[Rfam]
RNA sequence: GUUGCUUUGAGGAGUGGUAACUCCACCACCGUUGGCGUACAUUUGAAUGCCGGCGGUUGAGGAGUUCCUUAACCUCACUGCGGU
Numbered sequence: 001g002u003u004g005c006u007u008u009g010a011g012g013a014g015u016g017g018u019a020a021c022u023c024c025a026c027c028a029c030c031g032u033u034g035g036c037g038u039a040c041a042u043u044u045g046a047a048u049g050c051c052g053g054c055g056g057u058u059g060a061g062g063a064g065u066u067c068c069u070u071a072a073c074c075u076c077a078c079u080g081c082g083g084u
Base pairs, nucleotide, nucleotide: 003082004081005080008077009076010075011074012073016069017068019066020065021064022063023062026059029056030055031054032053033052034051035050036049037048
RNA: mir-2765 microRNA precursor family
Organism: Psylliodes chrysocephalus